This 129-nucleotide RNA sequence from Bacillus sp. FJAT-18017 belongs to the Rfam family "c-di-AMP riboswitch aptamer (ydaO/yuaA leader)". The source organism's lineage runs through Bacteria, Bacillati, Bacilli, Bacillaceae and Bacillus. The match comes from Rfam's covariance-model search (106 bits). Rfam's curators write: This family represents a conserved RNA structure found upstream of the ydaO and yuaA genes in Bacillus subtilis and related genes in other bacteria. Gene Ontology terms of the family: regulation of gene expression and cyclic-di-AMP binding. The base pairs follow the family's consensus structure.
RNA sequence: AUUCCUAAAUCGCUGAAACCAAUUGGUGCGGGGGACCCACUCGAAUAUGGGGUGAAUCCUUUUUAAAGGUAGGGCAACUCAUGCGCCCGAAUCCGGCAGCUAACCUCGUAAGCGUUAUUGGGAAGGAAG
Numbered sequence: 001a002u003u004c005c006u007a008a009a010u011c012g013c014u015g016a017a018a019c020c021a022a023u024u025g026g027u028g029c030g031g032g033g034g035a036c037c038c039a040c041u042c043g044a045a046u047a048u049g050g051g052g053u054g055a056a057u058c059c060u061u062u063u064u065a066a067a068g069g070u071a072g073g074g075c076a077a078c079u080c081a082u083g084c085g086c087c088c089g090a091a092u093c094c095g096g097c098a099g100c101u102a103a104c105c106u107c108g109u110a111a112g113c114g115u116u117a118u119u120g121g122g123a124a125g126g127a128a129g
Stems, first nucleotide, its partner, number of pairs: 011114004018027003028109006038049002050094003058069004072088004